A member of the RNA family "Bacterial large subunit ribosomal RNA" from Halobacteriovorax marinus, 563 nucleotides of a longer RNA. It is one of the family's seed sequences.
RNA sequence: UACUAAGGGCAUAUGGUGGAUAUCUUGGCAGCAAGAGGCGAUGAAGGACGUUUACUAGGUAACGAUAUGCUAAGACGAGUGAUCAAGUACGCUUUGACUCUUAGAUUUCCGAAUGGGGUAACCCCGCUAGCAGAAAUGCUAGUGACUAUACAGUGAGUAAAGUAGCUGUAUUAGAGCGAACGCAGGGAACUGAAACAUCUAAGUACCUGUAGGAACAUAAAUCAAUAGAGAUUCUGCUAGUAGCGGCGAGCGAACGCAGAAAAGCCCAAACCGGCCAGUUUACUGCCCGGGGUUGUAGGACCUCAUUUAGGAUUCAUGAAGAUUAGGAGAACGUGUUGGGAAGCACGACCAAAGAGAGUGAAAGUCUCGUAUCCGAAAAUUUGAUUGACCGAGAGGUAUCCUGAGUAGGACGGAACACGAGAAAUUCUGUCUGAAUCUGGGAGGACCACCUUCCAAGGCUAAAUACUCCUUGCUGACCGAUAGUGAACCAGUACCGUGAGGGAAAGAUGAAAAGAACCCCGAUAAGGGGAGUGAAAUAGAACUUGAAACCAUAUGCUUACAAU
Numbered sequence: 001u002a003c004u005a006a007g008g009g010c011a012u013a014u015g016g017u018g019g020a021u022a023u024c025u026u027g028g029c030a031g032c033a034a035g036a037g038g039c040g041a042u043g044a045a046g047g048a049c050g051u052u053u054a055c056u057a058g059g060u061a062a063c064g065a066u067a068u069g070c071u072a073a074g075a076c077g078a079g080u081g082a083u084c085a086a087g088u089a090c091g092c093u094u095u096g097a098c099u100c101u102u103a104g105a106u107u108u109c110c111g112a113a114u115g116g117g118g119u120a121a122c123c124c125c126g127c128u129a130g131c132a133g134a135a136a137u138g139c140u141a142g143u144g145a146c147u148a149u150a151c152a153g154u155g156a157g158u159a160a161a162g163u164a165g166c167u168g169u170a171u172u173a174g175a176g177c178g179a180a181c182g183c184a185g186g187g188a189a190c191u192g193a194a195a196c197a198u199c200u201a202a203g204u205a206c207c208u209g210u211a212g213g214a215a216c217a218u219a220a221a222u223c224a225a226u227a228g229a230g231a232u233u234c235u236g237c238u239a240g241u242a243g244c245g246g247c248g249a250g251c252g253a254a255c256g257c258a259g260a261a262a263a264g265c266c267c268a269a270a271c272c273g274g275c276c277a278g279u280u281u282a283c284u285g286c287c288c289g290g291g292g293u294u295g296u297a298g299g300a301c302c303u304c305a306u307u308u309a310g311g312a313u314u315c316a317u318g319a320a321g322a323u324u325a326g327g328a329g330a331a332c333g334u335g336u337u338g339g340g341a342a343g344c345a346c347g348a349c350c351a352a353a354g355a356g357a358g359u360g361a362a363a364g365u366c367u368c369g370u371a372u373c374c375g376a377a378a379a380u381u382u383g384a385u386u387g388a389c390c391g392a393g394a395g396g397u398a399u400c401c402u403g404a405g406u407a408g409g410a411c412g413g414a415a416c417a418c419g420a421g422a423a424a425u426u427c428u429g430u431c432u433g434a435a436u437c438u439g440g441g442a443g444g445a446c447c448a449c450c451u452u453c454c455a456a457g458g459c460u461a462a463a464u465a466c467u468c469c470u471u472g473c474u475g476a477c478c479g480a481u482a483g484u485g486a487a488c489c490a491g492u493a494c495c496g497u498g499a500g501g502g503a504a505a506g507a508u509g510a511a512a513a514g515a516a517c518c519c520c521g522a523u524a525a526g527g528g529g530a531g532u533g534a535a536a537u538a539g540a541a542c543u544u545g546a547a548a549c550c551a552u553a554u555g556c557u558u559a560c561a562a563u
Stems, first nucleotide, its partner, number of pairs: 007558010022543001023507002027478002029475007036467002038177002046110003049064003070104006079092003115124003125144007146174002148171007181212001182210005192199002222229002232463001233260005243251002263460004271290004276285002297402003300397005314388003320382005326374003332347005350354001356368003408432008439454005494501002517529004